[Rfam]
RNA sequence: GAGGGUAGGCCCCUCGAAGUCUGCUAUGGGGAGCUGGCUUCAAACCGCCUUAAGCUGCUGCAUUAAAGAGGUGCGGUAGUGAGCGUUAAGGAAAAGGCAGCAAUUGAGCUGUCAGGU
Dot-bracket structure: (((((.....)))))((((((.(((......))).))))))....(.((((((((.(((.((((.....)))).))).)).....))))))....((((((......))))))..).
Numbered sequence: 001g002a003g004g005g006u007a008g009g010c011c012c013c014u015c016g017a018a019g020u021c022u023g024c025u026a027u028g029g030g031g032a033g034c035u036g037g038c039u040u041c042a043a044a045c046c047g048c049c050u051u052a053a054g055c056u057g058c059u060g061c062a063u064u065a066a067a068g069a070g071g072u073g074c075g076g077u078a079g080u081g082a083g084c085g086u087u088a089a090g091g092a093a094a095a096g097g098c099a100g101c102a103a104u105u106g107a108g109c110u111g112u113c114a115g116g117u
Stems, first nucleotide, its partner, number of pairs: 001015005016041006023034003046116001048091006054080002057077003061073004096113006
Shown here is a 117-nucleotide RNA from bacterium J17, a member of the family "Group II catalytic intron D1-D4-2". Group II introns are found in rRNA, tRNA and mRNA of organelles in fungi, plants and protists, and also in mRNA in bacteria. The literature on the family includes a 2001 paper in Trends Genet by Bonen and Vogel, "The ins and outs of group II introns". Rfam links the family to the GO term Group II intron splicing.